[Rfam]
RNA sequence: UGUAAAUGAUGUUUUAUCACGAUGGUCUACUGAUAUCAUUGAUGAGAUGCCUUAUGGCUUUUUUCUGAUGCAGCAAU
Numbered sequence: 001u002g003u004a005a006a007u008g009a010u011g012u013u014u015u016a017u018c019a020c021g022a023u024g025g026u027c028u029a030c031u032g033a034u035a036u037c038a039u040u041g042a043u044g045a046g047a048u049g050c051c052u053u054a055u056g057g058c059u060u061u062u063u064u065c066u067g068a069u070g071c072a073g074c075a076a077u
Stems, first nucleotide, its partner, number of pairs: 001072004
Description:
Rfam assigns this 77-nucleotide RNA from Mytilus edulis to the family "Small nucleolar RNA SNORD35". Rfam describes the family as follows. U35 is a C/D box snoRNA located in intron 6 of ribosomal protein L13A and intron 3 of ribosomal protein S11 in humans and at homologous positions in mouse and chicken ribosomal protein genes. U35 guides the methylation of 2'-O-ribose sites in 28S rRNA. Taxonomically the source falls in Mytilus (Eukaryota, Protostomia, Spiralia, Autobranchia). A reference for the family is Nicoloso et al. (1996), "Intron-encoded, antisense small nucleolar RNAs: the characterization of nine novel species points to their direct role as guides for the 2'-O-ribose methylation of rRNAs", J Mol Biol. The base pairs follow the family's consensus structure, which was predicted with PFOLD. A search with the family's covariance model found it, with a score of 36 bits.